The family of this 131-nucleotide sequence from Gemella sp. GH3 is "Ribosomal protein L10 leader". A reference for the family is Zengel and Lindahl (1994), "Diverse mechanisms for regulating ribosomal protein synthesis in Escherichia coli", Prog Nucleic Acid Res Mol Biol. Gene Ontology term of the family: regulation of gene expression. By type it is a cis-regulatory leader. It scores 81 bits against the family's covariance model.
RNA sequence: UAAGUCAGUUAAGAUGUACCUAAGACAGUAGGGGGAGUUAUCCUUAAUAUCCUACCGAGGACAAUAUUAAAGAGUAUUAUAUUAUGCCCUUUUAUAUGUUCUCACAUAUAAAAGGGUUCUUUUUUGGUACA
Numbered sequence: 001u002a003a004g005u006c007a008g009u010u011a012a013g014a015u016g017u018a019c020c021u022a023a024g025a026c027a028g029u030a031g032g033g034g035g036a037g038u039u040a041u042c043c044u045u046a047a048u049a050u051c052c053u054a055c056c057g058a059g060g061a062c063a064a065u066a067u068u069a070a071a072g073a074g075u076a077u078u079a080u081a082u083u084a085u086g087c088c089c090u091u092u093u094a095u096a097u098g099u100u101c102u103c104a105c106a107u108a109u110a111a112a113a114g115g116g117u118u119c120u121u122u123u124u125u126g127g128u129a130c131a
Stems, first nucleotide, its partner, number of pairs: 028055006034043003087116013